[Rfam]
RNA sequence: GGUCGAUGAUGAUAAAUUUGAAGGCUUGUUUCUCAAAACAUUCGCAGUGGCCGCCUAAGAGCUUUCGUCUGCGCAGACUUGAGAGCUAAUGCUGUUUUUAUCCUUCCUUGGAUGUCUGAGACC
Numbered sequence: 001g002g003u004c005g006a007u008g009a010u011g012a013u014a015a016a017u018u019u020g021a022a023g024g025c026u027u028g029u030u031u032c033u034c035a036a037a038a039c040a041u042u043c044g045c046a047g048u049g050g051c052c053g054c055c056u057a058a059g060a061g062c063u064u065u066c067g068u069c070u071g072c073g074c075a076g077a078c079u080u081g082a083g084a085g086c087u088a089a090u091g092c093u094g095u096u097u098u099u100a101u102c103c104u105u106c107c108u109u110g111g112a113u114g115u116c117u118g119a120g121a122c123c
Stems, first nucleotide, its partner, number of pairs: 001123004061086006
A member of the RNA family "Small nucleolar RNA SNORD14" from Beta vulgaris, 123 nucleotides long. U14 small nucleolar RNA (U14 snoRNA) is required for early cleavages of eukaryotic precursor rRNAs. In yeasts, this molecule possess a stem-loop region (known as the Y-domain) which is essential for function. A similar structure, but with a different consensus sequence, is found in plants, but is absent in vertebrates. Gene Ontology terms of the family: RNA processing and nucleolus. The family's consensus secondary structure was predicted with PFOLD. For this family Rfam cites "An essential domain in Saccharomyces cerevisiae U14 snoRNA is absent in vertebrates, but conserved in other yeasts" (Samarsky et al., Nucleic Acids Res, 1996).